This 63-nucleotide sequence from Eurypyga helias belongs to the Rfam family "mir-139 microRNA precursor family". Gene Ontology terms of the family: miRNA-mediated post-transcriptional gene silencing and RISC complex. NCBI's taxonomy places the organism under Eukaryota, Euteleostomi, Sauria, Phaethontimorphae, Eurypyga. It scores 77 bits against the family's covariance model.
RNA sequence: UUCUACAGUGCAUGUGUCUCCAGUGUGGAUAAGCGACUGGAGAUGCGGCCCUGUUGGAAUAAC
Numbered sequence: 001u002u003c004u005a006c007a008g009u010g011c012a013u014g015u016g017u018c019u020c021c022a023g024u025g026u027g028g029a030u031a032a033g034c035g036a037c038u039g040g041a042g043a044u045g046c047g048g049c050c051c052u053g054u055u056g057g058a059a060u061a062a063c
Stems, first nucleotide, its partner, number of pairs: 001059004005054004010049002013047012